[Rfam]
RNA sequence: CCUGUCUUAUUGCAGACAGUUUUCUAUUCCAACAUGCACUUUCACCGCUGGUGUCUGCUGUAUGAAACUUGGAGGACAAUGAAGCCCUUGACCGAAAGGUCUGGAGACAUAACCGUGAGGGGAAGUCAAAUCUGGGAGCAUCAAACCGGAUAGGGAG
Numbered sequence: 001c002c003u004g005u006c007u008u009a010u011u012g013c014a015g016a017c018a019g020u021u022u023u024c025u026a027u028u029c030c031a032a033c034a035u036g037c038a039c040u041u042u043c044a045c046c047g048c049u050g051g052u053g054u055c056u057g058c059u060g061u062a063u064g065a066a067a068c069u070u071g072g073a074g075g076a077c078a079a080u081g082a083a084g085c086c087c088u089u090g091a092c093c094g095a096a097a098g099g100u101c102u103g104g105a106g107a108c109a110u111a112a113c114c115g116u117g118a119g120g121g122g123a124a125g126u127c128a129a130a131u132c133u134g135g136g137a138g139c140a141u142c143a144a145a146c147c148g149g150a151u152a153g154g155g156a157g
Base pairs, nucleotide, nucleotide: 002019003018004017005016006015007014028073029072030071031070032069033064034063035062036061037060038059088103090101091100092099093098104127105126113120114119131150132149133148134147135146
Shown here is a 157-nucleotide sequence from Desulfonema limicola, a member of the family "Group II catalytic intron D1-D4-7". Its family is annotated with Group II intron splicing in the Gene Ontology. Taxonomically the source falls in Desulfonema (Bacteria, Pseudomonadati, Desulfobacteria, Desulfococcaceae). A search with the family's covariance model found it, with a score of 86 bits. The family has 244 seed sequences and 1,296 matches in Rfam 15.1.